RNA sequence: AGGGCUCUCAGGUUCUAGCACGGCCCUCGGAAUGGCUAGAACUUUUAAGGCGCUGCGGCAACGCAGCGCCUUUUUUU
Number, nucleotide and partner (000 for none) at each position: 001a000002g000003g000004g000005c000006u000007c000008u000009c000010a044011g043012g042013u041014u040015c039016u038017a037018g036019c035020a000021c000022g000023g000024c030025c029026c000027u000028c000029g025030g024031a000032a000033u000034g000035g019036c018037u017038a016039g015040a014041a013042c012043u011044u010045u000046u000047a000048a000049g070050g069051c068052g067053c066054u065055g064056c063057g062058g000059c000060a000061a000062c057063g056064c055065a054066g053067c052068g051069c050070c049071u000072u000073u000074u000075u000076u000077u000